[Rfam]
Shown here is a 108-nucleotide sequence from Phocaeicola coprophilus, a member of the family "Bacteroides sRNA BTnc049". The literature on the family includes a 2020 paper in Nat Commun by Ryan et al., "A high-resolution transcriptome map identifies small RNA regulation of metabolism in the gut microbe Bacteroides thetaiotaomicron".
RNA sequence: AUAAGUGGAAGUUGUGAAACUUCCUUAUUAGAAUAGUUUAGUUAAGUCUAGUUUAGUUUUUGUGUUGUGAUACUCCUGGCAAUAGAGAUUGCCGGGAGUAUCUUUUUU
Numbered sequence: 001a002u003a004a005g006u007g008g009a010a011g012u013u014g015u016g017a018a019a020c021u022u023c024c025u026u027a028u029u030a031g032a033a034u035a036g037u038u039u040a041g042u043u044a045a046g047u048c049u050a051g052u053u054u055a056g057u058u059u060u061u062g063u064g065u066u067g068u069g070a071u072a073c074u075c076c077u078g079g080c081a082a083u084a085g086a087g088a089u090u091g092c093c094g095g096g097a098g099u100a101u102c103u104u105u106u107u108u
Stems, first nucleotide, its partner, number of pairs: 001063005008023006035054002038051004070101009080091003
By type it is a small RNA. Taxonomically the source falls in Phocaeicola coprophilus (Bacteria, Bacteroidota, Bacteroidaceae, Phocaeicola).